The family of this 46-nucleotide RNA from Chlorocebus sabaeus is "Histone 3' UTR stem-loop". The match comes from Rfam's covariance-model search (44 bits). About the family: The mRNAs of metazoan histone genes lack a poly-A tail. 3' end processing occurs at a site between a highly conserved stem-loop (modelled by this family) and a purine rich region around 20 nts downstream (the histone downstream element, or HDE). The family's RNA type in Rfam is cis-regulatory element. On this family, see DeJong et al., RNA 2002: "NMR structure and dynamics of the RNA-binding site for the histone mRNA stem-loop binding protein". The family's consensus secondary structure is taken from published work.
[Rfam]
RNA sequence: CCAAAGGCUCUUUUCAGAGCCACCCACUUUUUCUGUAAAGUGCUGG
Numbered sequence: 001c002c003a004a005a006g007g008c009u010c011u012u013u014u015c016a017g018a019g020c021c022a023c024c025c026a027c028u029u030u031u032u033c034u035g036u037a038a039a040g041u042g043c044u045g046g
Stems, first nucleotide, its partner, number of pairs: 006021006
Dot-bracket structure: .....((((((....)))))).........................